A member of the RNA family "TPP riboswitch aptamer (THI element)" from Crystallibacter crystallopoietes, 93 nucleotides long. The organism belongs to Crystallibacter crystallopoietes, within Bacteria.
[Rfam]
RNA sequence: GGCAGUGACACGGGGUGCCCUUGAGGGGCUGAGAAGAAACCCGUUGAACCUGAUCUAGUUCGUACUAGCGAAGGGAUGUCAUGCAGCGGCCGC
Numbered sequence: 001g002g003c004a005g006u007g008a009c010a011c012g013g014g015g016u017g018c019c020c021u022u023g024a025g026g027g028g029c030u031g032a033g034a035a036g037a038a039a040c041c042c043g044u045u046g047a048a049c050c051u052g053a054u055c056u057a058g059u060u061c062g063u064a065c066u067a068g069c070g071a072a073g074g075g076a077u078g079u080c081a082u083g084c085a086g087c088g089g090c091c092g093c
Stems, first nucleotide, its partner, number of pairs: 006081005011043004016037001017029005049074003055068004